[Rfam]
RNA sequence: GAUGACAGGGCCAAACCCAUCGCGAGGUGGGGACGGAAAGCCACGGGUCUUUUACCAAAAGAUAGCCGGGUUGCCAGAA
Numbered sequence: 001g002a003u004g005a006c007a008g009g010g011c012c013a014a015a016c017c018c019a020u021c022g023c024g025a026g027g028u029g030g031g032g033a034c035g036g037a038a039a040g041c042c043a044c045g046g047g048u049c050u051u052u053u054a055c056c057a058a059a060a061g062a063u064a065g066c067c068g069g070g071u072u073g074c075c076a077g078a079a
Base pairs, nucleotide, nucleotide: 003076004075011036012035016031017030018029019028020027021026034065039072040071041070042069044068045067046066047063048062049061
c-di-GMP-I-GGC riboswitch aptamer: a 79-nucleotide RNA sequence from Candidatus Vecturithrix granuli. The family's consensus secondary structure is taken from published work. For this family Rfam cites "Structural and biochemical characterization of linear dinucleotide analogues bound to the c-di-GMP-I aptamer" (Smith et al., Biochemistry, 2012). It scores 70 bits against the family's covariance model.